[Rfam]
RNA sequence: AAUCCCCCACUUUACUGAAGCCCUGCGUGCCACGCGGGGUACUUUGUAGGCAAAGUGGGGGAUU
Numbered sequence: 001a002a003u004c005c006c007c008c009a010c011u012u013u014a015c016u017g018a019a020g021c022c023c024u025g026c027g028u029g030c031c032a033c034g035c036g037g038g039g040u041a042c043u044u045u046g047u048a049g050g051c052a053a054a055g056u057g058g059g060g061g062a063u064u
Stems, first nucleotide, its partner, number of pairs: 001064012015050002020040009
This 64-nucleotide RNA belongs to the Rfam family "DUF3800-VIII RNA". Rfam classes the family as a small RNA. The family's consensus secondary structure is taken from published work.